[Rfam]
RNA sequence: GCGCUCACAAAGUGGUUGUGAAAUGAAUAUCAAAAACUUUGCACGCAUAUCACAGCCAGCUUUGAUGAGCUUAG
Numbered sequence: 001g002c003g004c005u006c007a008c009a010a011a012g013u014g015g016u017u018g019u020g021a022a023a024u025g026a027a028u029a030u031c032a033a034a035a036a037c038u039u040u041g042c043a044c045g046c047a048u049a050u051c052a053c054a055g056c057c058a059g060c061u062u063u064g065a066u067g068a069g070c071u072u073a074g
Stems, first nucleotide, its partner, number of pairs: 005068003008064005013058009024049002
A member of the RNA family "mir-2 microRNA precursor family" from Drosophila albomicans, 74 nucleotides long. For this family Rfam cites "An extensive class of small RNAs in Caenorhabditis elegans" (Lee and Ambros, Science, 2001). The base pairs follow the family's consensus structure, which was predicted with PFOLD.